RNA Staph. aureus F: a 119-nucleotide sequence from Staphylococcus aureus. The base pairs follow the family's consensus structure, which is taken from published work. For this family Rfam cites "A search for small noncoding RNAs in Staphylococcus aureus reveals a conserved sequence motif for regulation" (Geissmann et al., Nucleic Acids Res, 2009). The source organism's lineage runs through Bacteria, Bacillati, Bacilli, Staphylococcaceae and Staphylococcus aureus. The family's RNA type in Rfam is small RNA.

RNA sequence: UUGUUUAGCGUCGUGUAUUCAGACACGACGUUUUUUUAUGUUCUUUUUUAAUAAGAGGGAAGUGAAGUUGUAUAAAAAUGUAUUAAAUAUGCACUUUUUAUACAUUAACGAUUAAUAUA
Numbered sequence: 001u002u003g004u005u006u007a008g009c010g011u012c013g014u015g016u017a018u019u020c021a022g023a024c025a026c027g028a029c030g031u032u033u034u035u036u037u038a039u040g041u042u043c044u045u046u047u048u049u050a051a052u053a054a055g056a057g058g059g060a061a062g063u064g065a066a067g068u069u070g071u072a073u074a075a076a077a078a079u080g081u082a083u084u085a086a087a088u089a090u091g092c093a094c095u096u097u098u099u100a101u102a103c104a105u106u107a108a109c110g111a112u113u114a115a116u117a118u119a
Stems, first nucleotide, its partner, number of pairs: 007032010035066005041061009069104005074098002077095001079093005